[Rfam]
RNA: FMN riboswitch aptamer (RFN element)
Organism: Candidatus Thermoflexus japonica
RNA sequence: CACGACCUGCGGGGCAGGGUGAGGUCGCCUUCGGGCGGCCAAUUCCCGACCGGCGGUGAUGGAGGGGGUUCUCCUCCCCUCCUCAGCCCGCGAGCCGAGGCCCAAUGGGCCGAGGCAGGACACCGGUGAAAGUCCGGGGCCGACCGUAUAGUCGGGAUGGGAGCAGGUGGCG
Numbered sequence: 001c002a003c004g005a006c007c008u009g010c011g012g013g014g015c016a017g018g019g020u021g022a023g024g025u026c027g028c029c030u031u032c033g034g035g036c037g038g039c040c041a042a043u044u045c046c047c048g049a050c051c052g053g054c055g056g057u058g059a060u061g062g063a064g065g066g067g068g069u070u071c072u073c074c075u076c077c078c079c080u081c082c083u084c085a086g087c088c089c090g091c092g093a094g095c096c097g098a099g100g101c102c103c104a105a106u107g108g109g110c111c112g113a114g115g116c117a118g119g120a121c122a123c124c125g126g127u128g129a130a131a132g133u134c135c136g137g138g139g140c141c142g143a144c145c146g147u148a149u150a151g152u153c154g155g156g157a158u159g160g161g162a163g164c165a166g167g168u169g170g171c172g
Base pairs, nucleotide, nucleotide: 003170005168006167007166008165009164010163017047018046019045049152050151051142052141053091054090055089056088086140087139094116095115096114121138123137124136125135126134144155145154146153